RNA: mir-193 microRNA precursor family
RNA sequence: AUCAGGAGUUGGGUCUUUGCGGGCAAGGUGAGUUGUUCAACAUCUCUCAACUGGCCUACAAAGUCCCAGUCUCUGGU
Numbered sequence: 001a002u003c004a005g006g007a008g009u010u011g012g013g014u015c016u017u018u019g020c021g022g023g024c025a026a027g028g029u030g031a032g033u034u035g036u037u038c039a040a041c042a043u044c045u046c047u048c049a050a051c052u053g054g055c056c057u058a059c060a061a062a063g064u065c066c067c068a069g070u071c072u073c074u075g076g077u
Base pairs, nucleotide, nucleotide: 003075004074005073006072008070010068011067012066013065015063016062017061018060019059021057022056023055024054026052027051029049030048